Annotation
Rfam assigns this 67-nucleotide RNA from Niallia endozanthoxylica to the family "Bacillaceae-1 RNA". The family's consensus secondary structure is taken from published work.
[Rfam]
RNA sequence: AUUCGUGGAAUCACAGACUAAGAACGCCACAUUCGUGGCAACGUCUGUGUGACCCACAUCCUAUGGG
Numbered sequence: 001a002u003u004c005g006u007g008g009a010a011u012c013a014c015a016g017a018c019u020a021a022g023a024a025c026g027c028c029a030c031a032u033u034c035g036u037g038g039c040a041a042c043g044u045c046u047g048u049g050u051g052a053c054c055c056a057c058a059u060c061c062u063a064u065g066g067g
Base pairs, nucleotide, nucleotide: 012049013048014047015046016045017044018043026039027038028037029036030035053067054066055065056064